[Rfam]
Nucleotides: 251
Stems, first nucleotide, its partner, number of pairs: 007100002015095004026082006037072003048069005103134007136149003189211007217248004228244004
Number, partner (000 for none) and nucleotide at each position: 001000g002000u003000g004000a005000a006000a007100a008099c009000g010000a011000u012000g013000a014000a015095g016094a017093g018092a019000a020000g021000a022000a023000g024000u025000a026082a027081a028080u029079a030078g031077u032000g033000c034000a035000a036000u037072u038071u039070u040000a041000c042000g043000a044000g045000a046000g047000a048069g049068c050067u051066u052065c053000c054000g055000c056000u057000g058000g059000u060000g061000g062000a063000a064000a065052g066051a067050a068049g069048c070039a071038a072037a073000a074000u075000g076000a077031a078030c079029u080028a081027u082026u083000g084000a085000a086000c087000c088000a089000u090000g091000g092018u093017c094016u095015c096000a097000g098000a099008g100007u101000u102000u103134u104133a105132c106131u107130a108129g109128u110000g111000a112000g113000u114000g115000g116000u117000g118000c119000g120000a121000u122000a123000a124000a125000c126000a127000a128109g129108c130107u131106a132105g133104u134103a135000a136149c137148g138147a139000a140000a141000u142000g143000g144000c145000a146000g147138u148137c149136g150000u151000u152000a153000a154000c155000c156000u157000g158000c159000u160000a161000a162000a163000g164000u165000c166000a167000u168000g169000u170000u171000c172000g173000a174000u175000g176000a177000u178000g179000a180000c181000u182000u183000a184000c185000u186000g187000a188000g189211u190210c191209a192208a193207g194206u195205u196000u197000g198000u199000g200000c201000g202000a203000g204000c205195a206194g207193c208192u209191u210190g211189a212000a213000a214000a215000g216000u217248a218247a219246g220245g221000u222000g223000g224000u225000a226000c227000c228244a229243c230242g231241u232000u233000a234000g235000c236000u237000a238000a239000c240000c241231a242230c243229g244228u245220c246219c247218u248217u249000a250000c251000c